[Rfam]
RNA sequence: CCGUCCAACCCUCGGGACGACUGGCGAAAACCCGGCCCCCGACCGCUACGCUGGCCGGGUGCGAUCCCGUCCAGGGCACGCAUAGCCGACAGCCGUCGCAUCCCAGGGAGCAUCUCCAUG
Numbered sequence: 001c002c003g004u005c006c007a008a009c010c011c012u013c014g015g016g017a018c019g020a021c022u023g024g025c026g027a028a029a030a031c032c033c034g035g036c037c038c039c040c041g042a043c044c045g046c047u048a049c050g051c052u053g054g055c056c057g058g059g060u061g062c063g064a065u066c067c068c069g070u071c072c073a074g075g076g077c078a079c080g081c082a083u084a085g086c087c088g089a090c091a092g093c094c095g096u097c098g099c100a101u102c103c104c105a106g107g108g109a110g111c112a113u114c115u116c117c118a119u120g
Stems, first nucleotide, its partner, number of pairs: 060082004066076003085099002088097003
Shown here is a 120-nucleotide RNA sequence from Streptantibioticus cattleyicolor, a member of the family "Streptomyces-metH RNA".
The sequence is in the family's curated seed alignment.
Taxonomically the source falls in Streptantibioticus cattleyicolor (Bacteria, Actinomycetes, Streptomycetaceae, Streptantibioticus).
By type it is a small RNA.